[Rfam]
Shown here is a 76-nucleotide RNA from Crocodylus porosus, a member of the family "Mammalian CPEB3 ribozyme". It scores 37 bits against the family's covariance model. Its family is annotated with RNA nuclease activity in the Gene Ontology. The family's consensus secondary structure is taken from published work.

RNA sequence: UGUUGCAAGUUCAAGGCCAUAGCAGAAGUGCUUAUGGUGAAGUCUGUCAGAUUCCAAUGAAUCUGCAAAUUUUGCU
Numbered sequence: 001u002g003u004u005g006c007a008a009g010u011u012c013a014a015g016g017c018c019a020u021a022g023c024a025g026a027a028g029u030g031c032u033u034a035u036g037g038u039g040a041a042g043u044c045u046g047u048c049a050g051a052u053u054c055c056a057a058u059g060a061a062u063c064u065g066c067a068a069a070u071u072u073u074g075c076u
Stems, first nucleotide, its partner, number of pairs: 015044003021076007029039002048065007